[Rfam]
RNA sequence: CAAACCGGUAGAGGAGCGUCUUUACAAAAGUAGCCAGAAGUGAGAUUGCCAAGGUCGUUGAUAACUGGUGAAAGGGUUGGACGCCGAAGAAAAUUGUCUGGCAAGCAGUUUUCUGGGCAUACGUUUAAAAGACGUAUGACUGUCAUCAUUUUGCAAAAAUGAUGGAGAGCUAUAGGUGGC
Numbered sequence: 001c002a003a004a005c006c007g008g009u010a011g012a013g014g015a016g017c018g019u020c021u022u023u024a025c026a027a028a029a030g031u032a033g034c035c036a037g038a039a040g041u042g043a044g045a046u047u048g049c050c051a052a053g054g055u056c057g058u059u060g061a062u063a064a065c066u067g068g069u070g071a072a073a074g075g076g077u078u079g080g081a082c083g084c085c086g087a088a089g090a091a092a093a094u095u096g097u098c099u100g101g102c103a104a105g106c107a108g109u110u111u112u113c114u115g116g117g118c119a120u121a122c123g124u125u126u127a128a129a130a131g132a133c134g135u136a137u138g139a140c141u142g143u144c145a146u147c148a149u150u151u152u153g154c155a156a157a158a159a160u161g162a163u164g165g166a167g168a169g170c171u172a173u174a175g176g177u178g179g180c
Stems, first nucleotide, its partner, number of pairs: 006175001008173004016084006024077002033069005040062001088114010115141002118138008143165007